[Rfam]
RNA: L31-Gammaproteobacteria ribosomal protein leader
RNA sequence: CGUAUGGUGUCAGACUUCGGGUUUGAUAGCGAUGCGAACUAAUUAGAGGU
Numbered sequence: 001c002g003u004a005u006g007g008u009g010u011c012a013g014a015c016u017u018c019g020g021g022u023u024u025g026a027u028a029g030c031g032a033u034g035c036g037a038a039c040u041a042a043u044u045a046g047a048g049g050u
Stems, first nucleotide, its partner, number of pairs: 001036005007030002011025005